Pseudomonas sRNA P26: a 66-nucleotide sequence from Pseudomonas sp. 8AS. This small RNA (sRNA) was computationally identified in the genome of the opportunistic pathogen Pseudomonas aeruginosa and its expression verified by northern blot analysis. P26 is conserved across many Gammaproteobacteria species and appears to be consistently located between the DNA directed RNA polymerase (beta subunit) and 50S ribosomal protein L7/L12 genes. For this family Rfam cites "Identification of 17 Pseudomonas aeruginosa sRNAs and prediction of sRNA-encoding genes in 10 diverse pathogens using the bioinformatic tool sRNAPredict2" (Livny et al., Nucleic Acids Res, 2006). It scores 68 bits against the family's covariance model. NCBI's taxonomy places the organism under Bacteria, Pseudomonadati, Pseudomonadota, Pseudomonadales, Pseudomonas.

[Rfam]
Nucleotides: 066
Base pairs, nucleotide, nucleotide: 014039015038016037017036018035022030023029042065043064044063045062046061047060048059049058050057051056
Number, partner (000 for none) and nucleotide at each position: 001000g002000a003000c004000c005000u006000u007000g008000c009000g010000u011000c012000a013000a014039c015038a016037g017036c018035c019000c020000a021000a022030g023029c024000a025000u026000u027000g028000c029023g030022c031000u032000u033000a034000a035018g036017g037016c038015u039014g040000g041000c042065g043064g044063c045062u046061g047060g048059u049058g050057g051056c052000u053000u054000u055000u056051g057050c058049c059048a060047c061046c062045g063044g064043c065042c066000u